[Rfam]
The family of this 158-nucleotide RNA sequence from Glycine max is "MIR4371 microRNA precursor family". The family's consensus secondary structure was predicted with RNAalifold. It scores 120 bits against the family's covariance model. The organism belongs to Glycine subgen. Soja, within Eukaryota.
RNA sequence: CCGUUAAGUGAUAGUGUGAUAGAUGCAGUGUCACGUCAUCAUGUUCAAUCACUGACGCAACAUUGUCACAUCAUUGAAAGUGAUGAUGUGACAAUGGAGUGUCCGUGACAAGGUGUGAUGACAUGAUACUUCGUUUGUCAAGUCAUCACUUAACCGAA
Number, nucleotide and partner (000 for none) at each position: 001c156002c000003g154004u153005u152006a151007a150008g149009u148010g147011a146012u145013a000014g143015u142016g000017u140018g139019a138020u137021a136022g135023a134024u133025g132026c000027a130028g129029u128030g127031u126032c125033a124034c000035g122036u121037c120038a119039u118040c117041a116042u115043g114044u113045u112046c000047a000048a000049u108050c107051a106052c105053u000054g103055a102056c101057g100058c099059a000060a000061c000062a000063u000064u000065g000066u000067c000068a000069c000070a087071u086072c085073a084074u083075u000076g000077a000078a000079a000080g000081u000082g000083a074084u073085g072086a071087u070088g000089u000090g000091a000092c000093a000094a000095u000096g000097g000098a000099g058100u057101g056102u055103c054104c000105g052106u051107g050108a049109c000110a000111a000112g045113g044114u043115g042116u041117g040118a039119u038120g037121a036122c035123a000124u033125g032126a031127u030128a029129c028130u027131u000132c025133g024134u023135u022136u021137g020138u019139c018140a017141a000142g015143u014144c000145a012146u011147c010148a009149c008150u007151u006152a005153a004154c003155c000156g001157a000158a000